[Rfam]
RNA sequence: CAAACGGCUCCUUUAGGAGCCACCAAAUAUCAUAAAAGUCGUGACC
Numbered sequence: 001c002a003a004a005c006g007g008c009u010c011c012u013u014u015a016g017g018a019g020c021c022a023c024c025a026a027a028u029a030u031c032a033u034a035a036a037a038g039u040c041g042u043g044a045c046c
Base pairs, nucleotide, nucleotide: 006021007020008019009018010017011016
Dot-bracket structure: .....((((((....)))))).........................